[Rfam]
RNA sequence: AGCCUUUGUGUUGCCCAUUCACCUUGGAAAGCUAGUGAAUGUGGUGUCAAAAAAGGCAUAAAUAAAAGCUUUGCAGCUUUUUCCUGCCCUUAUAUUUGGUAUAUUUGGUGUAGGAGCUGCACAAGUAACAGUU
Numbered sequence: 001a002g003c004c005u006u007u008g009u010g011u012u013g014c015c016c017a018u019u020c021a022c023c024u025u026g027g028a029a030a031g032c033u034a035g036u037g038a039a040u041g042u043g044g045u046g047u048c049a050a051a052a053a054a055g056g057c058a059u060a061a062a063u064a065a066a067a068g069c070u071u072u073g074c075a076g077c078u079u080u081u082u083c084c085u086g087c088c089c090u091u092a093u094a095u096u097u098g099g100u101a102u103a104u105u106u107g108g109u110g111u112a113g114g115a116g117c118u119g120c121a122c123a124a125g126u127a128a129c130a131g132u133u
Base pairs, nucleotide, nucleotide: 002057003056004055005054006053007052009049010048012046013045014044015043016041017040018039019038020037021036022035067126069125070124071123072121073120074119075118076117077116082115083114084113085112086111087110088108089107